Notes: Shown here is a 132-nucleotide RNA from Aotus nancymaae, a member of the family "Small nucleolar RNA SNORA42/SNORA80 family". The literature on the family includes a 2006 paper in RNA by Schattner et al., "A computational screen for mammalian pseudouridylation guide H/ACA RNAs". It scores 134 bits against the family's covariance model. About the family: The members of this family belong to the H/ACA class of snoRNAs that guide the sites of modification of uridines to pseudouridines. Human ACA42 (SNORA42) was cloned from HeLa cells by immunoprecipitation with anti-GAR1 antibody. Its is predicted to guide the pseudouridylation of residues U109 and U572 of 18S rRNA. ACA42 shares the same host gene with ACA26, ACA46, ACA50. This family also includes mammalian snoRNA ACA67 (SNORA80) which was identified by computational screening and its expression in mouse experimentally verified by Northern blot and primer extension analysis. ACA67 is proposed to guide the pseudouridylation of the same 18S rRNA residues as ACA42. The organism belongs to Aotus, within Eukaryota. The family's consensus secondary structure was predicted with RNAalifold. The family has 21 seed sequences and 1,535 matches in Rfam 15.1.
RNA sequence: GCAUGGGUUUGGGUUUAUGAUGGGUCCAUCCCCCUGGGCCUCUCAUAGUACCCCAUGCCAGAUCAAACUAGCCCCGAACCAUUGCCUGGCCUCUGCCUGUAGCCUGCUGGCACUGAAGUGGGCUGCACAGUA
Numbered sequence: 001g002c003a004u005g006g007g008u009u010u011g012g013g014u015u016u017a018u019g020a021u022g023g024g025u026c027c028a029u030c031c032c033c034c035u036g037g038g039c040c041u042c043u044c045a046u047a048g049u050a051c052c053c054c055a056u057g058c059c060a061g062a063u064c065a066a067a068c069u070a071g072c073c074c075c076g077a078a079c080c081a082u083u084g085c086c087u088g089g090c091c092u093c094u095g096c097c098u099g100u101a102g103c104c105u106g107c108u109g110g111c112a113c114u115g116a117a118g119u120g121g122g123c124u125g126c127a128c129a130g131u132a
Stems, first nucleotide, its partner, number of pairs: 001058004005053004015048006022041003025037002069125006080115002085110002087106003091102002